Source information:
Shown here is a 54-nucleotide RNA from Salvelinus namaycush, a member of the family "UnaL2 LINE 3' element". The match comes from Rfam's covariance-model search (56 bits).

[Rfam]
RNA sequence: AUUACUCACUACUGUAAGUCUCUCUGGAUAAGAGAGUCUGAUAAAUGACUCACU
Number, nucleotide and partner (000 for none) at each position: 001a000002u000003u000004a000005c000006u000007c000008a000009c000010u000011a000012c000013u043014g000015u040016a039017a000018g000019u000020c036021u035022c034023u033024c032025u031026g000027g000028a000029u000030a000031a025032g024033a023034g022035a021036g020037u000038c000039u016040g015041a000042u000043a013044a000045a000046u000047g000048a000049c000050u000051c000052a000053c000054u000
The family's consensus secondary structure is taken from published work.